[Rfam]
RNA sequence: GCCACAUGAUGUGAAGUAGACUGCAGUAGCACUCAGUGCAAAGAUGACCAGUGAUCUAUCACCCCUGACUGAUGGCU
Number, nucleotide and partner (000 for none) at each position: 001g076002c075003c074004a073005c000006a000007u000008g000009a000010u000011g000012u000013g000014a000015a000016g000017u000018a000019g000020a000021c000022u000023g000024c000025a000026g000027u000028a000029g039030c038031a037032c036033u000034c000035a000036g032037u031038g030039c029040a000041a000042a000043g000044a000045u000046g000047a000048c000049c000050a000051g000052u000053g000054a000055u000056c000057u000058a000059u000060c000061a000062c000063c000064c000065c000066u000067g000068a000069c000070u000071g000072a000073u004074g003075g002076c001077u000
Small nucleolar RNA SNORD83: a 77-nucleotide sequence from Anguilla anguilla. On this family, see Jady and Kiss, Nucleic Acids Res 2000: "Characterisation of the U83 and U84 small nucleolar RNAs: two novel 2'-O-ribose methylation guide RNAs that lack complementarities to ribosomal RNAs". Rfam 15.1 lists 1,393 matches to the family in 644 species. A search with the family's covariance model found it, with a score of 56 bits.